This 73-nucleotide RNA sequence from Crocodylus porosus belongs to the Rfam family "Mammalian CPEB3 ribozyme". Pairs were carried over by alignment from the consensus structure, which is taken from published work. Taxonomically the source falls in Crocodylus (Eukaryota, Chordata, Teleostomi, Archelosauria). The match comes from Rfam's covariance-model search (40 bits). Rfam describes the family as follows. The mammalian CPEB3 ribozyme is a self cleaving RNA located in the second intron of the CPEB3 gene which belongs to a family of genes regulating messenger RNA polyadenylation.
Nucleotides: 073
Base pairs, nucleotide, nucleotide: 013041014040016038017037022072023071024070025069026068027067029034045062046061047060048059049058050057
Number, partner (000 for none) and nucleotide at each position: 001000a002000g003000u004000c005000a006000c007000a008000a009000u010000c011000u012000u013041g014040u015000g016038g017037c018000c019000a020000u021000a022072g023071u024070a025069g026068a027067a028000a029034c030000a031000u032000u033000u034029g035000a036000u037017g038016c039000a040014a041013c042000u043000g044000u045062c046061a047060g048059a049058u050057u051000c052000c053000a054000g055000c056000a057050a058049a059048u060047c061046u062045g063000u064000g065000a066000a067027u068026u069025c070024u071023g072022c073000a